[Rfam]
The record is an 80-nucleotide sequence from Gossypium anomalum, which matches "Small nucleolar RNA R38" in Rfam. Gene Ontology terms of the family: RNA processing and nucleolus. The literature on the family includes a 2003 paper in Nucleic Acids Res by Chen et al., "The high diversity of snoRNAs in plants: identification and comparative study of 120 snoRNA genes from Oryza sativa". Rfam's curators write: snoR38 is a C/D box small nucleolar RNA conserved across yeast, human, Arabidopsis and rice. It is annotated as a C/D-box small nucleolar RNA.
RNA sequence: GUCUGUUUAUGAUGAGAAAUCUUUGAAUAAGUUAUCCCUGUCUGAGUUUUUUGGAUGAGAUCUUGAUAUUUGACACAGAC
Numbered sequence: 001g002u003c004u005g006u007u008u009a010u011g012a013u014g015a016g017a018a019a020u021c022u023u024u025g026a027a028u029a030a031g032u033u034a035u036c037c038c039u040g041u042c043u044g045a046g047u048u049u050u051u052u053g054g055a056u057g058a059g060a061u062c063u064u065g066a067u068a069u070u071u072g073a074c075a076c077a078g079a080c
Base pairs, nucleotide, nucleotide: 001080002079003078004077005076006075